[Rfam]
RNA: c-di-AMP riboswitch aptamer (ydaO/yuaA leader)
Organism: Streptomyces galilaeus
RNA sequence: GUCGCGCAAGCGCCGUAGGCAGGAGCGGGGGACCCAAGGUAGGUGCCGGACCGGUCGGUUGACCGGAACGGCUCGGGGUGAAGCCACACGUUCCGGGGAGCAGUGCUCUUCGAUGACGAGUGGCCGGGCAACUCACACGGCCCGAACCCGACAGCUCACCUCGCAGGCGUCGGUGAGGGGAUCC
Numbered sequence: 001g002u003c004g005c006g007c008a009a010g011c012g013c014c015g016u017a018g019g020c021a022g023g024a025g026c027g028g029g030g031g032a033c034c035c036a037a038g039g040u041a042g043g044u045g046c047c048g049g050a051c052c053g054g055u056c057g058g059u060u061g062a063c064c065g066g067a068a069c070g071g072c073u074c075g076g077g078g079u080g081a082a083g084c085c086a087c088a089c090g091u092u093c094c095g096g097g098g099a100g101c102a103g104u105g106c107u108c109u110u111c112g113a114u115g116a117c118g119a120g121u122g123g124c125c126g127g128g129c130a131a132c133u134c135a136c137a138c139g140g141c142c143c144g145a146a147c148c149c150g151a152c153a154g155c156u157c158a159c160c161u162c163g164c165a166g167g168c169g170u171c172g173g174u175g176a177g178g179g180g181a182u183c184c
Stems, first nucleotide, its partner, number of pairs: 011169004025164006035075001076149003084123004126143004